[Rfam]
RNA: Bacterial RNase P class A
RNA sequence: AGAGUAAAUCAGACAAUCGUAUGCUUUGGCAUGAGGAAAGUCCGAGCUCCGUAGAGCAGGGUGCUGGGUAACCCCCAGUGGAGGCAACUCCAAGGAAAGUGCAACAGAAAUAGACCGCCUCUUUUAGGAGAGGUAAGGAUGGAAAGGCGAGGUAAGAGCUCACCAGCGCAUAGGCGACUAUGUGGCUCUGUAAACCCCACCUGGAGCAAGACCAAGUUAGGGUAUAAAAAGGAUGCUGCUCGUAUCCCCCAGUGGUAGGUCGCUUGAACGUAUUGGUAACACUACGUCUAGAUAGAUGAUUGUCUAAUACAGAACUCGGCUUAUAGAUUUACUCAACCA
Numbered sequence: 001a002g003a004g005u006a007a008a009u010c011a012g013a014c015a016a017u018c019g020u021a022u023g024c025u026u027u028g029g030c031a032u033g034a035g036g037a038a039a040g041u042c043c044g045a046g047c048u049c050c051g052u053a054g055a056g057c058a059g060g061g062u063g064c065u066g067g068g069u070a071a072c073c074c075c076c077a078g079u080g081g082a083g084g085c086a087a088c089u090c091c092a093a094g095g096a097a098a099g100u101g102c103a104a105c106a107g108a109a110a111u112a113g114a115c116c117g118c119c120u121c122u123u124u125u126a127g128g129a130g131a132g133g134u135a136a137g138g139a140u141g142g143a144a145a146g147g148c149g150a151g152g153u154a155a156g157a158g159c160u161c162a163c164c165a166g167c168g169c170a171u172a173g174g175c176g177a178c179u180a181u182g183u184g185g186c187u188c189u190g191u192a193a194a195c196c197c198c199a200c201c202u203g204g205a206g207c208a209a210g211a212c213c214a215a216g217u218u219a220g221g222g223u224a225u226a227a228a229a230a231g232g233a234u235g236c237u238g239c240u241c242g243u244a245u246c247c248c249c250c251a252g253u254g255g256u257a258g259g260u261c262g263c264u265u266g267a268a269c270g271u272a273u274u275g276g277u278a279a280c281a282c283u284a285c286g287u288c289u290a291g292a293u294a295g296a297u298g299a300u301u302g303u304c305u306a307a308u309a310c311a312g313a314a315c316u317c318g319g320c321u322u323a324u325a326g327a328u329u330u331a332c333u334c335a336a337c338c339a
Base pairs, nucleotide, nucleotide: 002334003333004332005331006330007329008328009327010326011324012304013303014302015301016300017299018298020033021032022031023030024029038322039321040320042319043318044317045316046315047206048205049204050203054241055240056239057238059202060201061200062199063198064078065077066076067075068074079093080091081090082089083088094197095196099195100194101191102190103189115138116137117134118133119132120131121130122129123128146164147163149161150160151159166186167184168183169182170181171180172179173178210261211260212259213258220249221248222247232246233245234244235243236242268287269286270285271284272283274281275280